[Rfam]
RNA sequence: UGCACAUGCCCUCCUUGGGCGUUUCCUCCCUAGACUCGAAGGCCGCCGAAAGGCGGCCUCCUUUUUUUUGGGGG
Numbered sequence: 001u002g003c004a005c006a007u008g009c010c011c012u013c014c015u016u017g018g019g020c021g022u023u024u025c026c027u028c029c030c031u032a033g034a035c036u037c038g039a040a041g042g043c044c045g046c047c048g049a050a051a052g053g054c055g056g057c058c059u060c061c062u063u064u065u066u067u068u069u070g071g072g073g074g
Base pairs, nucleotide, nucleotide: 008020009019010018011017040059041058042057043056044055045054046053047052